The family of this 223-nucleotide RNA from Nannocystis exedens is "Group II catalytic intron D1-D4-6". The family has 174 seed sequences and 1,617 matches in Rfam 15.1. A reference for the family is Bonen and Vogel (2001), "The ins and outs of group II introns", Trends Genet. The organism belongs to Nannocystis, within Bacteria. The base pairs follow the family's consensus structure. From the family's description: Group II introns are found in rRNA, tRNA and mRNA of organelles in fungi, plants and protists, and also in mRNA in bacteria.

RNA sequence: CGAGAGCUUCACGUCGAAGGAGUAGCGACCCACGACGACCCCGAGUCCUGCGUCGGCAUCCGCGAGGCUGCAGGCGAAGCAUGGGACAGGGGCACGUGCGGGCCGGGUAUUGAGCCGCGAAAUCAGGUACUUCAGGGCGCCGACGUCGUUAAGCGAGGCGGAAGGCAAGACGCUCCGAGCCGUAAGCGCGAGGCUCGGUGCGGCCCUGCGCGGUCGAAGACCC
Numbered sequence: 001c002g003a004g005a006g007c008u009u010c011a012c013g014u015c016g017a018a019g020g021a022g023u024a025g026c027g028a029c030c031c032a033c034g035a036c037g038a039c040c041c042c043g044a045g046u047c048c049u050g051c052g053u054c055g056g057c058a059u060c061c062g063c064g065a066g067g068c069u070g071c072a073g074g075c076g077a078a079g080c081a082u083g084g085g086a087c088a089g090g091g092g093c094a095c096g097u098g099c100g101g102g103c104c105g106g107g108u109a110u111u112g113a114g115c116c117g118c119g120a121a122a123u124c125a126g127g128u129a130c131u132u133c134a135g136g137g138c139g140c141c142g143a144c145g146u147c148g149u150u151a152a153g154c155g156a157g158g159c160g161g162a163a164g165g166c167a168a169g170a171c172g173c174u175c176c177g178a179g180c181c182g183u184a185a186g187c188g189c190g191a192g193g194c195u196c197g198g199u200g201c202g203g204c205c206c207u208g209c210g211c212g213g214u215c216g217a218a219g220a221c222c223c
Stems, first nucleotide, its partner, number of pairs: 012037005019031002023191001025189002039092004045087002047084002049081002051076004056071003060067002111217001112215001114214006133208006139166003144160004171202003175198007